Rfam assigns this 210-nucleotide RNA from Clostridium cylindrosporum to the family "raiA RNA".
RNA sequence: AUUAAUUAGGUUUGUGGUUGAAAGUCGAUGCUAGUCGCAGGCAAAACGAUCCACGUAAGUUAGAAAAAGUUCUAAUGAGCAUGGUGCGGUAUAGAAGUAAGACCUGCCGGGGACAAGAUCUUCGAGAGAGGGAAUAGUGAGAGGCAUACCACCUUAGGCAAAACCUCCAGCAGGCGGGUGUGGGGUCAAAAACCAGGUCAACUAAUUAAU
Numbered sequence: 001a002u003u004a005a006u007u008a009g010g011u012u013u014g015u016g017g018u019u020g021a022a023a024g025u026c027g028a029u030g031c032u033a034g035u036c037g038c039a040g041g042c043a044a045a046a047c048g049a050u051c052c053a054c055g056u057a058a059g060u061u062a063g064a065a066a067a068a069g070u071u072c073u074a075a076u077g078a079g080c081a082u083g084g085u086g087c088g089g090u091a092u093a094g095a096a097g098u099a100a101g102a103c104c105u106g107c108c109g110g111g112g113a114c115a116a117g118a119u120c121u122u123c124g125a126g127a128g129a130g131g132g133a134a135u136a137g138u139g140a141g142a143g144g145c146a147u148a149c150c151a152c153c154u155u156a157g158g159c160a161a162a163a164c165c166u167c168c169a170g171c172a173g174g175c176g177g178g179u180g181u182g183g184g185g186u187c188a189a190a191a192a193c194c195a196g197g198u199c200a201a202c203u204a205a206u207u208a209a210u
Stems, first nucleotide, its partner, number of pairs: 001210009012201003015195005028181003031041001034090006050084002058076001060074001063072002082188001103174005108124005128167004137159002143152001
It scores 186 bits against the family's covariance model. Taxonomically the source falls in Clostridium cylindrosporum (Bacteria, Clostridia, Clostridiaceae, Clostridium).